This 74-nucleotide RNA sequence from Fumia xinanensis belongs to the Rfam family "Fluoride riboswitch aptamer (crcB RNA motif)". The match comes from Rfam's covariance-model search (49 bits). Lineage of the source: Bacteria > Bacillati > Bacillota > Eubacteriales > Fumia.
RNA sequence: AUUUCAUAUGGGAAUGAAGUUCUCCCUAGGAUUAAUCCUAAACCGCUUUUUGAGCUGAUGACUUCUGUGAUUUU
Numbered sequence: 001a002u003u004u005c006a007u008a009u010g011g012g013a014a015u016g017a018a019g020u021u022c023u024c025c026c027u028a029g030g031a032u033u034a035a036u037c038c039u040a041a042a043c044c045g046c047u048u049u050u051u052g053a054g055c056u057g058a059u060g061a062c063u064u065c066u067g068u069g070a071u072u073u074u
Stems, first nucleotide, its partner, number of pairs: 010026004016065006045055003

Annotation: Pairs were carried over by alignment from the consensus structure, which is taken from published work.